[Rfam]
RNA sequence: GUUGGAAUGAUGAAUGUUUUAUGUCGGAUACCCCUUCACUCUUAAGAAUGAGUGAAAAAAAUAUUCUGACAAC
Numbered sequence: 001g002u003u004g005g006a007a008u009g010a011u012g013a014a015u016g017u018u019u020u021a022u023g024u025c026g027g028a029u030a031c032c033c034c035u036u037c038a039c040u041c042u043u044a045a046g047a048a049u050g051a052g053u054g055a056a057a058a059a060a061a062u063a064u065u066c067u068g069a070c071a072a073c
Stems, first nucleotide, its partner, number of pairs: 001073003005070001
Dot-bracket structure: (((.(................................................................))))

Overview: The record is a 73-nucleotide RNA sequence from Scyliorhinus torazame, which matches "Small nucleolar RNA SNORD101" in Rfam. Taxonomically the source falls in Scyliorhinus (Eukaryota, Chordata, Elasmobranchii, Galeoidea). It scores 62 bits against the family's covariance model. By type it is a C/D-box small nucleolar RNA. On this family, see Vitali et al., Nucleic Acids Res 2003: "Identification of 13 novel human modification guide RNAs". The family's consensus secondary structure was predicted with PFOLD. The family is grouped with related families in Rfam's "SNORD101 clan". The family has 26 seed sequences and 658 matches in Rfam 15.1.